[Rfam]
RNA sequence: UCUGCUGUUCUGCUUACUUCCGCUGACAGGAGCGGGGGACCCACCUUGGCGCGCAAGCGUCCCGGGGUGAAGCCACUCACGUGGCCGGGCGUCACACCUUUCCGCCCGAACCCGACAGCUAACUUCGUAGGCGUUCGAGAGGUCAACU
Numbered sequence: 001u002c003u004g005c006u007g008u009u010c011u012g013c014u015u016a017c018u019u020c021c022g023c024u025g026a027c028a029g030g031a032g033c034g035g036g037g038g039a040c041c042c043a044c045c046u047u048g049g050c051g052c053g054c055a056a057g058c059g060u061c062c063c064g065g066g067g068u069g070a071a072g073c074c075a076c077u078c079a080c081g082u083g084g085c086c087g088g089g090c091g092u093c094a095c096a097c098c099u100u101u102c103c104g105c106c107c108g109a110a111c112c113c114g115a116c117a118g119c120u121a122a123c124u125u126c127g128u129a130g131g132c133g134u135u136c137g138a139g140a141g142g143u144c145a146a147c148u
Stems, first nucleotide, its partner, number of pairs: 011133004018031003032128006042064001065113003073084004087107004
RNA: c-di-AMP riboswitch aptamer (ydaO/yuaA leader)